Source information: Rfam assigns this 150-nucleotide RNA from Capra hircus to the family "Small nucleolar RNA SNORD97". By type it is a C/D-box small nucleolar RNA. The match comes from Rfam's covariance-model search (155 bits). Rfam links the family to the GO terms nucleolus and RNA processing. The literature on the family includes a 2003 paper in Nucleic Acids Res by Vitali et al., "Identification of 13 novel human modification guide RNAs".
[Rfam]
RNA sequence: UUGCCCGAUGAUUAUAAAAAAAAGACGCAUUAAGAGGACUUAAUGCUGGAAUUCUUUUAUCUUUACUUUCUUUCUCUCUUUUCUGUACUACUUUUUCUUUCUUUGAAUGUCCAGCGUCCUAUGAGCGAAGAUUAUGAGAUAUGAGGGCAA
Numbered sequence: 001u002u003g004c005c006c007g008a009u010g011a012u013u014a015u016a017a018a019a020a021a022a023a024g025a026c027g028c029a030u031u032a033a034g035a036g037g038a039c040u041u042a043a044u045g046c047u048g049g050a051a052u053u054c055u056u057u058u059a060u061c062u063u064u065a066c067u068u069u070c071u072u073u074c075u076c077u078c079u080u081u082u083c084u085g086u087a088c089u090a091c092u093u094u095u096u097c098u099u100u101c102u103u104u105g106a107a108u109g110u111c112c113a114g115c116g117u118c119c120u121a122u123g124a125g126c127g128a129a130g131a132u133u134a135u136g137a138g139a140u141a142u143g144a145g146g147g148c149a150a
Base pairs, nucleotide, nucleotide: 001150002149003148004147005146006145035055036054037053038052040050041049